[Rfam]
RNA sequence: AAGAGUAGGAGUAGGUGGUUGCGGACUUGAGAUCGCAAGUCUGAGGAAAGUCCGGGCUCUCGAAAGGCCAGACUUGCUGGGUAACGCCCAGUGCGGGUGACCGUGAGGAGAGUGCCACAGAAACAUACCGCCGAUGGCUUGUUUCGCUACAGGAUAGCCAAACAUUCACAGGUAAGGGUGCAAGGGUGCGGUAAGAGCGCACCAGCAACGUCGAGAGGCGUUGGCUCGGUAAACCCCGGUGGAGAGCAAGGCAGAGGGCAACGGUUGGUCUUUUCCCCGCUCUCGUUUGUAGCGCCGCUUGAGGCGUCUGGUAACAGGCGUCCCAGAUAGAUAACUACCCUCUUUCGACCAAUCCUGGGCCAAUGUCCGGGUGGAGAAAGAGAACAGAACCCGGCUUACCGCCUGCUCUUCCCU
Numbered sequence: 001a002a003g004a005g006u007a008g009g010a011g012u013a014g015g016u017g018g019u020u021g022c023g024g025a026c027u028u029g030a031g032a033u034c035g036c037a038a039g040u041c042u043g044a045g046g047a048a049a050g051u052c053c054g055g056g057c058u059c060u061c062g063a064a065a066g067g068c069c070a071g072a073c074u075u076g077c078u079g080g081g082u083a084a085c086g087c088c089c090a091g092u093g094c095g096g097g098u099g100a101c102c103g104u105g106a107g108g109a110g111a112g113u114g115c116c117a118c119a120g121a122a123a124c125a126u127a128c129c130g131c132c133g134a135u136g137g138c139u140u141g142u143u144u145c146g147c148u149a150c151a152g153g154a155u156a157g158c159c160a161a162a163c164a165u166u167c168a169c170a171g172g173u174a175a176g177g178g179u180g181c182a183a184g185g186g187u188g189c190g191g192u193a194a195g196a197g198c199g200c201a202c203c204a205g206c207a208a209c210g211u212c213g214a215g216a217g218g219c220g221u222u223g224g225c226u227c228g229g230u231a232a233a234c235c236c237c238g239g240u241g242g243a244g245a246g247c248a249a250g251g252c253a254g255a256g257g258g259c260a261a262c263g264g265u266u267g268g269u270c271u272u273u274u275c276c277c278c279g280c281u282c283u284c285g286u287u288u289g290u291a292g293c294g295c296c297g298c299u300u301g302a303g304g305c306g307u308c309u310g311g312u313a314a315c316a317g318g319c320g321u322c323c324c325a326g327a328u329a330g331a332u333a334a335c336u337a338c339c340c341u342c343u344u345u346c347g348a349c350c351a352a353u354c355c356u357g358g359g360c361c362a363a364u365g366u367c368c369g370g371g372u373g374g375a376g377a378a379a380g381a382g383a384a385c386a387g388a389a390c391c392c393g394g395c396u397u398a399c400c401g402c403c404u405g406c407u408c409u410u411c412c413c414u
Stems, first nucleotide, its partner, number of pairs: 001410009011399001014339007022043008048397003052394005057246004066272002072240002075238002077091005092106001093104004107236002112234002114230003128177002130173003135168003185203006205225001206223007250296003254284006263277002267273001303322008

Rfam assigns this 414-nucleotide sequence from Acaryochloris marina to the family "Bacterial RNase P class A". The base pairs follow the family's consensus structure, which is taken from published work. Its Rfam clan is "RNaseP clan". Rfam links the family to the GO terms tRNA processing, ribonuclease P activity and dimeric ribonuclease P complex.